[Rfam]
RNA sequence: AUUACCGGACUCAUAAAACCCAACCGCAAGUCAGGUUGGUGUGUCUGUCCGGGUCGGGGCAUAUAAGCCGCCCAACCUCAUCCCAUUCCUUUGUGGAAUAAGGAGUGCUAACGCAUGGCUGAAGGAACUACAAAAGCCUCGGGCCACCGCGUCCGAGACUGUUUACCCAUGCAUACAAUCACAUUA
Numbered sequence: 001a002u003u004a005c006c007g008g009a010c011u012c013a014u015a016a017a018a019c020c021c022a023a024c025c026g027c028a029a030g031u032c033a034g035g036u037u038g039g040u041g042u043g044u045c046u047g048u049c050c051g052g053g054u055c056g057g058g059g060c061a062u063a064u065a066a067g068c069c070g071c072c073c074a075a076c077c078u079c080a081u082c083c084c085a086u087u088c089c090u091u092u093g094u095g096g097a098a099u100a101a102g103g104a105g106u107g108c109u110a111a112c113g114c115a116u117g118g119c120u121g122a123a124g125g126a127a128c129u130a131c132a133a134a135a136g137c138c139u140c141g142g143g144c145c146a147c148c149g150c151g152u153c154c155g156a157g158a159c160u161g162u163u164u165a166c167c168c169a170u171g172c173a174u175a176c177a178a179u180c181a182c183a184u185u186a
Base pairs, nucleotide, nucleotide: 005052006051007050008049009048010047013044014043020039021038022037023036024035025034053076054075057073058072059071060070062067085185091178092177093176094175095174096172098170099169103168105166106165107164109121110120112118135160136159138157139156140155141154142153143152144151
Dot-bracket structure: ....((((((..((.....((((((........))))))...))..))))))((..((((.(....)..)))).))........(.....((((((.((...(.(((.((.(.....).)).............((.(((((((......))))))).))...))).))).).)))))......).
Source information
The record is a 186-nucleotide RNA sequence from a halophilic archaeon, which matches "Sense overlapping transcript RNA 2652 (sot)" in Rfam. It is associated with IS1341-type transposase (tnpB) genes, at the 3'-end in H. salinarum NRC-1. The family's consensus secondary structure was predicted with RNAfold. By type it is a small RNA. The family has 2 seed sequences and 37 matches in Rfam 15.1.